[Rfam]
RNA sequence: CCUCAUUUCAUUUGUAAGUCACUUUGGAUAAAAGCGUCUGCUAAAUGACUAAAU
Numbered sequence: 001c002c003u004c005a006u007u008u009c010a011u012u013u014g015u016a017a018g019u020c021a022c023u024u025u026g027g028a029u030a031a032a033a034g035c036g037u038c039u040g041c042u043a044a045a046u047g048a049c050u051a052a053a054u
Stems, first nucleotide, its partner, number of pairs: 013043001014041003020036001022034004
Annotation: The family of this 54-nucleotide RNA from Triplophysa rosa is "UnaL2 LINE 3' element". On this family, see Baba et al., RNA 2004: "Solution structure of an RNA stem-loop derived from the 3' conserved region of eel LINE UnaL2". Rfam classes the family as a cis-regulatory element. Rfam's curators write: The eel long interspersed element (LINE) UnaL2 and its partner short interspersed element (SINE) share a conserved 3' tail containing a stem-loop that is critical for their retrotransposition. Pairs were carried over by alignment from the consensus structure, which is taken from published work.